[Rfam]
RNA: Bacterial small subunit ribosomal RNA, nucleotides 569 to 918
RNA sequence: GGUUUAAAGGGAGUGUAGGCGGUCUGUUAAGCGUGUUGUGAAAUUUAGGUGCUCAACAUUUAACUUGCAGCGCGAACUGUCAGACUUGAGUACACGCAGCGCAGGCGGAAUUCAUGGUGUAGCGGUGAAAUGCUUAGAUAUCAUGAGGAACUCCGAUCGCGAAGGCAGCCUGCGGGAGUGUUACUGACGCUUAAGCUCGAAGGUGCGGGUAUCGAACAGGAUUAGAUACCCUGGUAGUCCGCACUGUAAACGAUGGAUGCCCGCCGUUGGCGCCCUGCGCCUGCGGCCAAGCGAAAGCAUUAAGCAUCCCACCUGGGGAGUACGCCGGCAACGGUGAAACUCAAAGGAAU
Numbered sequence: 001g002g003u004u005u006a007a008a009g010g011g012a013g014u015g016u017a018g019g020c021g022g023u024c025u026g027u028u029a030a031g032c033g034u035g036u037u038g039u040g041a042a043a044u045u046u047a048g049g050u051g052c053u054c055a056a057c058a059u060u061u062a063a064c065u066u067g068c069a070g071c072g073c074g075a076a077c078u079g080u081c082a083g084a085c086u087u088g089a090g091u092a093c094a095c096g097c098a099g100c101g102c103a104g105g106c107g108g109a110a111u112u113c114a115u116g117g118u119g120u121a122g123c124g125g126u127g128a129a130a131u132g133c134u135u136a137g138a139u140a141u142c143a144u145g146a147g148g149a150a151c152u153c154c155g156a157u158c159g160c161g162a163a164g165g166c167a168g169c170c171u172g173c174g175g176g177a178g179u180g181u182u183a184c185u186g187a188c189g190c191u192u193a194a195g196c197u198c199g200a201a202g203g204u205g206c207g208g209g210u211a212u213c214g215a216a217c218a219g220g221a222u223u224a225g226a227u228a229c230c231c232u233g234g235u236a237g238u239c240c241g242c243a244c245u246g247u248a249a250a251c252g253a254u255g256g257a258u259g260c261c262c263g264c265c266g267u268u269g270g271c272g273c274c275c276u277g278c279g280c281c282u283g284c285g286g287c288c289a290a291g292c293g294a295a296a297g298c299a300u301u302a303a304g305c306a307u308c309c310c311a312c313c314u315g316g317g318g319a320g321u322a323c324g325c326c327g328g329c330a331a332c333g334g335u336g337a338a339a340c341u342c343a344a345a346g347g348a349a350u
Stems, first nucleotide, its partner, number of pairs: 001313003009310001011198004018191003022085005028079001030078002032074009045063007089185003092181004097176001100174007107151001111147008122133003159166002203244006213237001217233004255309006263287005269281005291298002315342003324335004
Dot-bracket structure: (((.....(.((((...(((.(((((.(.(((((((((((....(((((((.....)))))))..)))))))))..))).)))))...(((((((.(..((((((((...((((((((...(((......)))......))))))))...).......((....)).))))))).).)))).)))...)))...))))....((((((....(...((((.........))))...).))))))..........((((((..(((((.(((((...))))).)))))...((....)).....)))))))))).(((......((((....))))....)))........